About this RNA:
The record is a 76-nucleotide RNA from Cnephaeus nilssonii, which matches "mir-9223 microRNA precursor family" in Rfam.

RNA sequence: GGCCAGUUCUUGGGUGACGCAUCCCGGAAUUGGGCUCCUUCCUCUCUGGUUCCGGAUGCAUCACCCAAAAACUGCA
Numbered sequence: 001g002g003c004c005a006g007u008u009c010u011u012g013g014g015u016g017a018c019g020c021a022u023c024c025c026g027g028a029a030u031u032g033g034g035c036u037c038c039u040u041c042c043u044c045u046c047u048g049g050u051u052c053c054g055g056a057u058g059c060a061u062c063a064c065c066c067a068a069a070a071a072c073u074g075c076a
Stems, first nucleotide, its partner, number of pairs: 002075002006072003010068008020058005026053009
Pairs were carried over by alignment from the consensus structure, which was predicted with RNAalifold. The organism belongs to Cnephaeus, within Eukaryota.